[Rfam]
RNA sequence: GGCCUGUUAGUCAAGUGGCUAAGACGUCGCCCUCUCACGGCGAAGGCAGGGGUUCGAUCCCCCUACGGGUCA
Numbered sequence: 001g002g003c004c005u006g007u008u009a010g011u012c013a014a015g016u017g018g019c020u021a022a023g024a025c026g027u028c029g030c031c032c033u034c035u036c037a038c039g040g041c042g043a044a045g046g047c048a049g050g051g052g053u054u055c056g057a058u059c060c061c062c063c064u065a066c067g068g069g070u071c072a
Stems, first nucleotide, its partner, number of pairs: 001071007010025003027043005048064005